[Rfam]
RNA sequence: GUAUUCUUGCGCCCAUGAACCGCAUCCUGUCCGAACUUCGACGUCGCCGCUUGCCCCACCUUUAGGGCCUGGCUUAGUCGCGGACGCGCGUCGUGAAGGGUUGAACCCACCGGCGCACAGGAAAGUUCGAAUUACGAAAGCCACGGCCAGUCCGUGGCUUUUUG
Number, nucleotide and partner (000 for none) at each position: 001g000002u000003a000004u000005u000006c000007u130008u129009g000010c093011g092012c090013c000014c088015a000016u000017g000018a000019a000020c086021c000022g000023c000024a000025u000026c000027c000028u000029g000030u000031c083032c082033g081034a000035a000036c000037u000038u000039c077040g000041a075042c000043g073044u072045c071046g000047c000048c000049g068050c067051u000052u000053g000054c065055c000056c000057c000058a000059c000060c000061u000062u000063u000064a000065g054066g000067g050068c049069c000070u000071g045072g044073c043074u000075u041076a000077g039078u000079c000080g000081c033082g032083g031084a000085c000086g020087c000088g014089c000090g012091u000092c011093g010094u000095g000096a000097a000098g000099g000100g000101u000102u000103g000104a000105a000106c000107c000108c000109a000110c000111c000112g000113g000114c000115g000116c000117a000118c000119a000120g000121g000122a000123a000124a000125g000126u000127u000128c000129g008130a007131a000132u000133u000134a000135c000136g000137a161138a160139a159140g158141c157142c156143a155144c154145g153146g152147c000148c000149a000150g000151u000152c146153c145154g144155u143156g142157g141158c140159u139160u138161u137162u000163u000164g000
Annotation:
Shown here is a 164-nucleotide RNA from Paraburkholderia acidisoli, a member of the family "Burkholderia sRNA 7". It is annotated as a small RNA. A search with the family's covariance model found it, with a score of 73 bits. For this family Rfam cites "Identification of novel small RNAs in Burkholderia cenocepacia KC-01 expressed under iron limitation and oxidative stress conditions" (Ghosh et al., Microbiology, 2017). Rfam describes the family as follows. Did not show any change in expression in iron-depletion and hydrogen peroxide (oxidative stress) treatment. Constitutively expressed. Possibly targets the GTPase, ObgE.